[Rfam]
Nucleotides: 103
Base pairs, nucleotide, nucleotide: 002098005095006094007093008092009091015026016025017024018023028083029082030081032078035077037075041070042069043068044067045066046065047064
Number, partner (000 for none) and nucleotide at each position: 001000c002098c003000g004000a005095c006094u007093c008092u009091g010000g011000a012000a013000a014000g015026c016025g017024g018023g019000a020000c021000g022000a023018c024017c025016c026015g027000c028083a029082c030081c031000c032078a033000c034000g035077g036000u037075g038000c039000a040000a041070g042069u043068c044067g045066u046065g047064c048000c049000g050000g051000c052000g053000c054000g055000u056000g057000a058000g059000g060000c061000g062000c063000c064047g065046c066045g067044c068043g069042a070041c071000g072000a073000a074000g075037c076000u077035c078032u079000c080000a081030g082029g083028u084000c085000a086000a087000c088000g089000g090000a091009c092008a093007g094006a095005g096000c097000g098002g099000g100000g101000a102000g103000a
Rfam assigns this 103-nucleotide RNA from Pseudoclavibacter endophyticus to the family "Glycine riboswitch aptamer". This family represents the bacterial glycine riboswitch.